The record is a 69-nucleotide RNA from Mus musculus, which matches "mir-8/mir-141/mir-200 microRNA precursor family" in Rfam.
The sequence is in the family's curated seed alignment.
The family is grouped with related families in Rfam's "mir-8 microRNA precursor clan".
Gene Ontology terms of the family: RISC complex and miRNA-mediated post-transcriptional gene silencing.
A reference for the family is Lagos-Quintana et al. (2001), "Identification of novel genes coding for small expressed RNAs", Science.
RNA sequence: AUGGAUGUCUUACCAGACAUGGUUAGAUCUGGAUGCAUCUGUCUAAUACUGUCUGGUAAUGCCGUCCAU
Numbered sequence: 001a002u003g004g005a006u007g008u009c010u011u012a013c014c015a016g017a018c019a020u021g022g023u024u025a026g027a028u029c030u031g032g033a034u035g036c037a038u039c040u041g042u043c044u045a046a047u048a049c050u051g052u053c054u055g056g057u058a059a060u061g062c063c064g065u066c067c068a069u
Stems, first nucleotide, its partner, number of pairs: 002068006009061001010059010022047006